[Rfam]
RNA: Guanidine-II riboswitch aptamer (mini-ykkC)
RNA sequence: CCGCCGGGACGACCCGGCCUUGGACGGAGCAAGUCGGGACGACCCGG
Numbered sequence: 001c002c003g004c005c006g007g008g009a010c011g012a013c014c015c016g017g018c019c020u021u022g023g024a025c026g027g028a029g030c031a032a033g034u035c036g037g038g039a040c041g042a043c044c045c046g047g
Stems, first nucleotide, its partner, number of pairs: 003018006034047005